[Rfam]
A member of the RNA family "tRNA" from Candidatus Cryosericum terrychapinii, 84 nucleotides long. Gene Ontology term of the family: triplet codon-amino acid adaptor activity. Lineage of the source: Bacteria > Pseudomonadati > Candidatus Cryosericia > Candidatus Cryosericaceae > Candidatus Cryosericum. It is annotated as a transfer RNA.

RNA sequence: GCCGAAGUGGCGGAACUGGCAGACGCAGCAGACUCAAAAUCUGCCGGGGUAACACCCGUGUGGGUUCAAUUCCCUCCUUCGGCA
Numbered sequence: 001g002c003c004g005a006a007g008u009g010g011c012g013g014a015a016c017u018g019g020c021a022g023a024c025g026c027a028g029c030a031g032a033c034u035c036a037a038a039a040u041c042u043g044c045c046g047g048g049g050u051a052a053c054a055c056c057c058g059u060g061u062g063g064g065u066u067c068a069a070u071u072c073c074c075u076c077c078u079u080c081g082g083c084a
Stems, first nucleotide, its partner, number of pairs: 001083007010026003028044005060076001062074003